[Rfam]
RNA: small nucleolar RNA snoR135
RNA sequence: CAAGCAGAGAUGUGUGUGUAUUGGAAUUGUGCUUUUAAUGUACUUUAAUCCGAAAGAAUUCUCUGCGAAACUGAUUUUUGGUGAAGGUGGGCAGUUGAGUCUCAUAUAAUCUAUUGAUUUAUCAACAAUCAUUUUCUCCACAUUU
Number, nucleotide and partner (000 for none) at each position: 001c000002a000003a000004g066005c065006a064007g063008a062009g061010a060011u000012g000013u000014g000015u000016g043017u042018g041019u040020a039021u038022u000023g000024g000025a000026a000027u000028u000029g000030u000031g000032c000033u000034u000035u000036u000037a000038a021039u020040g019041u018042a017043c016044u000045u000046u000047a000048a000049u000050c000051c000052g000053a000054a000055a000056g000057a000058a000059u000060u010061c009062u008063c007064u006065g005066c004067g000068a000069a000070a000071c000072u000073g000074a000075u000076u000077u000078u000079u000080g139081g138082u000083g136084a135085a134086g133087g132088u131089g130090g129091g000092c000093a000094g126095u125096u124097g123098a000099g000100u000101c000102u000103c000104a000105u000106a000107u000108a000109a000110u000111c000112u000113a000114u000115u000116g000117a000118u000119u000120u000121a000122u000123c097124a096125a095126c094127a000128a000129u090130c089131a088132u087133u086134u085135u084136c083137u000138c081139c080140a000141c000142a000143u000144u000145u000